[Rfam]
RNA sequence: AACCCUUGGAGAGAGCCUAGCAAAUACGUGAGAUAUUUGGAUUAGGACGCCGAAGGCGCAAAAAAGUAUCAGAUACUUUUCAAACGCUCAGGCAAAAGGACAGGGGCUGGAAA
Numbered sequence: 001a002a003c004c005c006u007u008g009g010a011g012a013g014a015g016c017c018u019a020g021c022a023a024a025u026a027c028g029u030g031a032g033a034u035a036u037u038u039g040g041a042u043u044a045g046g047a048c049g050c051c052g053a054a055g056g057c058g059c060a061a062a063a064a065a066g067u068a069u070c071a072g073a074u075a076c077u078u079u080u081c082a083a084a085c086g087c088u089c090a091g092g093c094a095a096a097a098g099g100a101c102a103g104g105g106g107c108u109g110g111a112a113a
Stems, first nucleotide, its partner, number of pairs: 001108001003106006016046005049093003052089002056087003062080008
Background: The record is a 113-nucleotide sequence from Mergibacter septicus, which matches "Glycine riboswitch aptamer" in Rfam. The match comes from Rfam's covariance-model search (51 bits). NCBI's taxonomy places the organism under Bacteria, Pseudomonadati, Pseudomonadota, Pasteurellales, Mergibacter.